[Rfam]
RNA sequence: UGCAAGAAUUUUACGAUUAAGAAGCAACCGUUUCUUGUACAGAUUAUUUAUGGAUCU
Numbered sequence: 001u002g003c004a005a006g007a008a009u010u011u012u013a014c015g016a017u018u019a020a021g022a023a024g025c026a027a028c029c030g031u032u033u034c035u036u037g038u039a040c041a042g043a044u045u046a047u048u049u050a051u052g053g054a055u056c057u
Stems, first nucleotide, its partner, number of pairs: 018037008
A member of the RNA family "Plastid-rps18 3UTR RNA" from Berberis fortunei, 57 nucleotides long. It is one of the family's seed sequences. From the family's description: Plastid rps18 is a non-coding RNA (ncRNA) present in plastids. It was identified as a short stem-loop motif in the 3 prime untranslate region (3UTR) of rps18 gene. A reference for the family is Richter et al. (2023), "Retrograde signaling in plants: A critical review focusing on the GUN pathway and beyond", Plant Commun.